[Rfam]
RNA: Bacterial large subunit ribosomal RNA, nucleotides 801 to 1240
RNA sequence: CUCCUCGAAAGCUAUUUAGGUAGCGCCUCACGUAUCACCGCCGGGGGUAGAGCACUGUUUCGGCUAGGGGGUCAUCCCGACUUACCAACCCGAGGCAAACUCCGAAUACCGGUGAGUGCAGCGUGGGAGACACACGGCGGGUGCUAACGUCCGUCGUGAAAAGGGAAACAACCCAGACCGUCAGCUAAGGUCCCGAAAUCCUGGUUAAGUGGGAAACGAUGUGGGAAGGCUCAGACAGCUAGGAGGUUGGCUUAGAAGCAGCCAUCCUUUAAAGAAAGCGUAAUAGCUCACUAGUCGAGUCGGCCUGCGCGGAAGAUGUAACGGGGCUAAACCAGGUACCGAAGCUACGGGUGUGUUCUUAGGAACACGCGGUAGAGGAGCGUCGUGUACGCCGAUGAAGGUGGAUUGAGAAGUCUGCUGGAGGUAUCACGAGUGCGAAU
Numbered sequence: 001c002u003c004c005u006c007g008a009a010a011g012c013u014a015u016u017u018a019g020g021u022a023g024c025g026c027c028u029c030a031c032g033u034a035u036c037a038c039c040g041c042c043g044g045g046g047g048u049a050g051a052g053c054a055c056u057g058u059u060u061c062g063g064c065u066a067g068g069g070g071g072u073c074a075u076c077c078c079g080a081c082u083u084a085c086c087a088a089c090c091c092g093a094g095g096c097a098a099a100c101u102c103c104g105a106a107u108a109c110c111g112g113u114g115a116g117u118g119c120a121g122c123g124u125g126g127g128a129g130a131c132a133c134a135c136g137g138c139g140g141g142u143g144c145u146a147a148c149g150u151c152c153g154u155c156g157u158g159a160a161a162a163g164g165g166a167a168a169c170a171a172c173c174c175a176g177a178c179c180g181u182c183a184g185c186u187a188a189g190g191u192c193c194c195g196a197a198a199u200c201c202u203g204g205u206u207a208a209g210u211g212g213g214a215a216a217c218g219a220u221g222u223g224g225g226a227a228g229g230c231u232c233a234g235a236c237a238g239c240u241a242g243g244a245g246g247u248u249g250g251c252u253u254a255g256a257a258g259c260a261g262c263c264a265u266c267c268u269u270u271a272a273a274g275a276a277a278g279c280g281u282a283a284u285a286g287c288u289c290a291c292u293a294g295u296c297g298a299g300u301c302g303g304c305c306u307g308c309g310c311g312g313a314a315g316a317u318g319u320a321a322c323g324g325g326g327c328u329a330a331a332c333c334a335g336g337u338a339c340c341g342a343a344g345c346u347a348c349g350g351g352u353g354u355g356u357u358c359u360u361a362g363g364a365a366c367a368c369g370c371g372g373u374a375g376a377g378g379a380g381c382g383u384c385g386u387g388u389a390c391g392c393c394g395a396u397g398a399a400g401g402u403g404g405a406u407u408g409a410g411a412a413g414u415c416u417g418c419u420g421g422a423g424g425u426a427u428c429a430c431g432a433g434u435g436c437g438a439a440u
Base pairs, nucleotide, nucleotide: 001380002379003378004377005376006375011024012023013022014021015020026129027127028126029125030124031123032122033121035120039114040113041112042111043110044109050103051101052100056097057096058095060093061092062091063090067086068085069083070082071081072080073079133158134157135156136155137154138153139152140151141150142149163174164173165172178350179349180348181347183346184345185344189340190339191338198337200336201335202334203333204332205331217311218310221308222307223306224305225304228301229300230299238295239294240293241292242291244268245267246266249263250262251261269273274289278287279286351370352369353368354367355366356365357364358363381435383432384431385430386429387428391425392424393423400419401418402417403416404415405414406413407412